The record is a 209-nucleotide sequence from Lachancea waltii, which matches "Small nucleolar RNA snR31" in Rfam. For this family Rfam cites "Identification and functional analysis of a novel yeast small nucleolar RNA" (Dandekar and Tollervey, Nucleic Acids Res, 1993). Rfam links the family to the GO terms nucleolus and RNA processing. The base pairs follow the family's consensus structure, which was predicted with WAR. Its Rfam clan is "SNORA8 clan".

RNA sequence: AAAACAUUAAACAACCAUGCGUUCCACUGGCGUCACUAGUACGUACUACUAUCGUUCUGGUUUGAUGUCAAUUUUUUAUGGUGGUUUUUUUAGCGAUGCAUGGGAGAUAAAUGGUUUAAGAUGUAUCUCCAGCUAUUGAAGUGAGGGAAAGCCUUUUUCUUUCCCCCAGCCAAAAUCUGAUAUAGUUGGUCAUGUUUCUUGCGACAAAU
Dot-bracket structure: ..............((((((((...(.(.(((((((((...................))))..)))).).)..)..(.(((........)).).)))))))))..............(.((.......((((((((.....((.(.(((((.......))))).).)).............)))))))).......)).).........